[Rfam]
Nucleotides: 059
Base pairs, nucleotide, nucleotide: 016043017042019040020039022037023036024035025034026033
Number, partner (000 for none) and nucleotide at each position: 001000u002000g003000c004000g005000a006000c007000a008000c009000c010000a011000u012000c013000a014000a015000a016043a017042g018000a019040g020039u021000c022037g023036u024035u025034c026033c027000c028000c029000u030000c031000u032000a033026g034025g035024g036023g037022c038000u039020a040019c041000c042017u043016u044000a045000c046000c047000a048000u049000a050000u051000u052000c053000c054000a055000a056000a057000u058000u059000c